The record is a 158-nucleotide RNA from Paractinoplanes abujensis, which matches "c-di-AMP riboswitch aptamer (ydaO/yuaA leader)" in Rfam.

[Rfam]
RNA sequence: CGUGCGGAAACGAACCCAGGCAUGGAGCGGGGGACCCACAAGUUCCUCGGCGCGCCGCUGUUCCCAGCCGGCGCGCCUCGGGGUGAAGCCGCCUGCGCGCGGCCGGGCAGCCCAGCCCGAACCCGACAGCUCACCUCGCAGGCGUGGAGGUAGCUCUU
Numbered sequence: 001c002g003u004g005c006g007g008a009a010a011c012g013a014a015c016c017c018a019g020g021c022a023u024g025g026a027g028c029g030g031g032g033g034a035c036c037c038a039c040a041a042g043u044u045c046c047u048c049g050g051c052g053c054g055c056c057g058c059u060g061u062u063c064c065c066a067g068c069c070g071g072c073g074c075g076c077c078u079c080g081g082g083g084u085g086a087a088g089c090c091g092c093c094u095g096c097g098c099g100c101g102g103c104c105g106g107g108c109a110g111c112c113c114a115g116c117c118c119g120a121a122c123c124c125g126a127c128a129g130c131u132c133a134c135c136u137c138g139c140a141g142g143c144g145u146g147g148a149g150g151u152a153g154c155u156c157u158u
Base pairs, nucleotide, nucleotide: 003144004143005142011025027139028138029137030136031135032134037080081124082123083122089102090101091100092099105118106117107116108115